About this RNA: A member of the RNA family "Streptococcus sRNA SpF59 (ldcC RNA)" from Eubacterium sp. CAG:248, 87 nucleotides long. For this family Rfam cites "Control of virulence by small RNAs in Streptococcus pneumoniae" (Mann et al., PLoS Pathog, 2012). Rfam's curators put it in the seed alignment.
RNA sequence: UGACCACUUAUACAUUUGAUGUAUACAAUAUAUACAUAUUACGUCUGGUAUAAGUUAAGCCUAACGGACAGGCGGGUCGGUUGCCGG
Numbered sequence: 001u002g003a004c005c006a007c008u009u010a011u012a013c014a015u016u017u018g019a020u021g022u023a024u025a026c027a028a029u030a031u032a033u034a035c036a037u038a039u040u041a042c043g044u045c046u047g048g049u050a051u052a053a054g055u056u057a058a059g060c061c062u063a064a065c066g067g068a069c070a071g072g073c074g075g076g077u078c079g080g081u082u083g084c085c086g087g
Stems, first nucleotide, its partner, number of pairs: 001079005006055008